[Rfam]
This 127-nucleotide sequence from Psychrobacillus insolitus belongs to the Rfam family "FMN riboswitch aptamer (RFN element)".
RNA sequence: GUUGUCCUUCGGGGUGGGUGAAAUUCCCAAUCGGCGGUAAUGAUGAAAAUCUAGCCCGCGAGCUUUUAUAGCAGGAUUUGGUGCGAUUCCAAAGCCGACAGUAUAGUCUGGAUGGGAGAAGGAUAGA
Numbered sequence: 001g002u003u004g005u006c007c008u009u010c011g012g013g014g015u016g017g018g019u020g021a022a023a024u025u026c027c028c029a030a031u032c033g034g035c036g037g038u039a040a041u042g043a044u045g046a047a048a049a050u051c052u053a054g055c056c057c058g059c060g061a062g063c064u065u066u067u068a069u070a071g072c073a074g075g076a077u078u079u080g081g082u083g084c085g086a087u088u089c090c091a092a093a094g095c096c097g098a099c100a101g102u103a104u105a106g107u108c109u110g111g112a113u114g115g116g117a118g119a120a121g122g123a124u125a126g127a
Stems, first nucleotide, its partner, number of pairs: 003125008016028003030107002032097002034059004054095002064071001077093005099110003
Dot-bracket structure: ..((((((((.....(((.......))).[[((((((................[[))))....(......).....(((((.......)))))]])).(((....]]))).......))))))))..
A search with the family's covariance model found it, with a score of 116 bits. The base pairs follow the family's consensus structure, which is taken from published work. Rfam's curators write: The RFN element is a highly conserved domain that is found frequently in the 5'-untranslated regions of prokaryotic mRNAs that encode for flavin mononucleotide (FMN) biosynthesis and transport proteins.